[Rfam]
RNA sequence: CCCUUUGAAAUCCGCCGCGACGCAUCCUAUAUCUCUGUCUGUCGGGCAACCGACUAUGGACAUAAACGCGCUCGUAAUAAGCGGAUCGGACCCGGGGGCGGUACCCGGCGGCUCCACCAACACACCACCGGCGGCAUCCUUCGUUUGGGGAGGUCUUCGGGACAGUGGGGCCGAAAUAGGAUCGACGAACGUCUAAAGGGGAUUGCCUUGUCCCGGUGAGGUACCACCGUUAUCGGUCCGAACAGUACAAUUGCAAACGACAAUCGUGCUCCGGUUGCUCUGGCCGCGUAAGCGGUUCGAGGAAUCGAAAUCUAAGCCCUUGCGCCUAGCAGCGUAAGGCGGGGUUCGCAGGCACCUGGCAACAGAAGCCUGCACU
Dot-bracket structure: ........................................(((((....)))))...(((((.....((((((........((..(((...(((((.......)))))(((((((((...............................................)))))))))............))).)).......)))..)))..)))))((((..[[.[[[)))).....]]]]]......................................................................................................[[[[..((((((]]]]..........))))))...
Numbered sequence: 001c002c003c004u005u006u007g008a009a010a011u012c013c014g015c016c017g018c019g020a021c022g023c024a025u026c027c028u029a030u031a032u033c034u035c036u037g038u039c040u041g042u043c044g045g046g047c048a049a050c051c052g053a054c055u056a057u058g059g060a061c062a063u064a065a066a067c068g069c070g071c072u073c074g075u076a077a078u079a080a081g082c083g084g085a086u087c088g089g090a091c092c093c094g095g096g097g098g099c100g101g102u103a104c105c106c107g108g109c110g111g112c113u114c115c116a117c118c119a120a121c122a123c124a125c126c127a128c129c130g131g132c133g134g135c136a137u138c139c140u141u142c143g144u145u146u147g148g149g150g151a152g153g154u155c156u157u158c159g160g161g162a163c164a165g166u167g168g169g170g171c172c173g174a175a176a177u178a179g180g181a182u183c184g185a186c187g188a189a190c191g192u193c194u195a196a197a198g199g200g201g202a203u204u205g206c207c208u209u210g211u212c213c214c215g216g217u218g219a220g221g222u223a224c225c226a227c228c229g230u231u232a233u234c235g236g237u238c239c240g241a242a243c244a245g246u247a248c249a250a251u252u253g254c255a256a257a258c259g260a261c262a263a264u265c266g267u268g269c270u271c272c273g274g275u276u277g278c279u280c281u282g283g284c285c286g287c288g289u290a291a292g293c294g295g296u297u298c299g300a301g302g303a304a305u306c307g308a309a310a311u312c313u314a315a316g317c318c319c320u321u322g323c324g325c326c327u328a329g330c331a332g333c334g335u336a337a338g339g340c341g342g343g344g345u346u347c348g349c350a351g352g353c354a355c356c357u358g359g360c361a362a363c364a365g366a367a368g369c370c371u372g373c374a375c376u
Stems, first nucleotide, its partner, number of pairs: 041054005058213005068206003071201003082191002086188003092108005109173009214229004220239002223237003342357004348373006

The family of this 376-nucleotide RNA sequence from Oceanicola sp. 22II-s10i is "Alphaproteobacteria transfer-messenger RNA". About the family: Bacterial tmRNA, also known as 10Sa RNA or SsrA, is named for its dual tRNA and mRNA-like properties. Its Rfam clan is "tRNA clan". Rfam classes the family as a non-coding RNA gene.